The record is an 85-nucleotide sequence from Planctomyces sp. SH-PL14, which matches "Fluoride riboswitch aptamer (crcB RNA motif)" in Rfam. It scores 46 bits against the family's covariance model. The organism belongs to Planctomyces, within Bacteria.
RNA sequence: GAAUACCUUGGCGAUGGGGUUCCGCCAUAACCGCCGGGAGAAUGCCGCAAGGUCUGCCUCCCGCGCUGAUGACUCCUACCGAUUG
Numbered sequence: 001g002a003a004u005a006c007c008u009u010g011g012c013g014a015u016g017g018g019g020u021u022c023c024g025c026c027a028u029a030a031c032c033g034c035c036g037g038g039a040g041a042a043u044g045c046c047g048c049a050a051g052g053u054c055u056g057c058c059u060c061c062c063g064c065g066c067u068g069a070u071g072a073c074u075c076c077u078a079c080c081g082a083u084u085g
Base pairs, nucleotide, nucleotide: 010026011025012024013023016076017075018074019073020072021071033066034065